Human parechovirus 1 (HPeV1) cis regulatory element (CRE): a 118-nucleotide sequence from Serinus canaria. This family represents a Parechovirus cis regulatory element which is located in the 5'-terminal 112 nucleotides of the genome of human parechovirus 1 (HPeV1). The family consists of two stem-loop structures (SL-A and SL-B) together with a pseudoknot.

RNA sequence: CCCGGGUUUUUUUUUAAAAAACCCCCCCCGGGGGGUUUUUUAAAAAACCCCCCGGGGGGGUUUUUUUUAAAAAAAAAAACCCCCCCCCCCGGGGGGGGGGGUUAAAAAAAAAAAACGG
Numbered sequence: 001c002c003c004g005g006g007u008u009u010u011u012u013u014u015u016a017a018a019a020a021a022c023c024c025c026c027c028c029c030g031g032g033g034g035g036u037u038u039u040u041u042a043a044a045a046a047a048c049c050c051c052c053c054g055g056g057g058g059g060g061u062u063u064u065u066u067u068u069a070a071a072a073a074a075a076a077a078a079a080c081c082c083c084c085c086c087c088c089c090c091g092g093g094g095g096g097g098g099g100g101g102u103u104a105a106a107a108a109a110a111a112a113a114a115a116c117g118g
Stems, first nucleotide, its partner, number of pairs: 004082008012073004016067004020062009030053008083101006